[Rfam]
RNA sequence: AAAGAGACCUCGGUCUCUUUUUUGAAUGUAGACAAACUAUUGUUUUACAUAAAACGGCUAGAUGAUUUUCAAAAAUGACUUUUAUUUUUUUAGCCAUUUAAUAAAAAGAUUAAAAACUUCCCGACGUGAGAAAAGUGUUAGAGACACUAGUGUCUCUAACACUCGGGAGUUUUGAGACCUUAGGCUCAAAACUAAGUCAUGGAACUUCGUAGAAGUUCGCUGACGUCCGUACUCACCUAAGGGAAGUUUUUCAGAAGACUUUAUCUUAAAUCUGAAAAGAGACCUCGGUCUCUUUUU
Numbered sequence: 001a002a003a004g005a006g007a008c009c010u011c012g013g014u015c016u017c018u019u020u021u022u023u024g025a026a027u028g029u030a031g032a033c034a035a036a037c038u039a040u041u042g043u044u045u046u047a048c049a050u051a052a053a054a055c056g057g058c059u060a061g062a063u064g065a066u067u068u069u070c071a072a073a074a075a076u077g078a079c080u081u082u083u084a085u086u087u088u089u090u091u092a093g094c095c096a097u098u099u100a101a102u103a104a105a106a107a108g109a110u111u112a113a114a115a116a117c118u119u120c121c122c123g124a125c126g127u128g129a130g131a132a133a134a135g136u137g138u139u140a141g142a143g144a145c146a147c148u149a150g151u152g153u154c155u156c157u158a159a160c161a162c163u164c165g166g167g168a169g170u171u172u173u174g175a176g177a178c179c180u181u182a183g184g185c186u187c188a189a190a191a192c193u194a195a196g197u198c199a200u201g202g203a204a205c206u207u208c209g210u211a212g213a214a215g216u217u218c219g220c221u222g223a224c225g226u227c228c229g230u231a232c233u234c235a236c237c238u239a240a241g242g243g244a245a246g247u248u249u250u251u252c253a254g255a256a257g258a259c260u261u262u263a264u265c266u267u268a269a270a271u272c273u274g275a276a277a278a279g280a281g282a283c284c285u286c287g288g289u290c291u292c293u294u295u296u297u
Stems, first nucleotide, its partner, number of pairs: 003293007012284011024272002027084002030081001033077002040072003046065001091137001138270001142266003146262001149260003156229001158226001168193009178184002196224004202218002205215004241251003